[Rfam]
RNA sequence: CUCUGUUCAUAUUUUAAAGUGUUCAGGGCAGAAGGAG
Numbered sequence: 001c002u003c004u005g006u007u008c009a010u011a012u013u014u015u016a017a018a019g020u021g022u023u024c025a026g027g028g029c030a031g032a033a034g035g036a037g
Stems, first nucleotide, its partner, number of pairs: 001028005008021003